[Rfam]
RNA: Histone 3' UTR stem-loop
Organism: Stylophora pistillata
RNA sequence: CAAACGGCUCCUUUAGGAGCCACCAAAUGAAUAAAAGCAGUGACC
Numbered sequence: 001c002a003a004a005c006g007g008c009u010c011c012u013u014u015a016g017g018a019g020c021c022a023c024c025a026a027a028u029g030a031a032u033a034a035a036a037g038c039a040g041u042g043a044c045c
Stems, first nucleotide, its partner, number of pairs: 006021006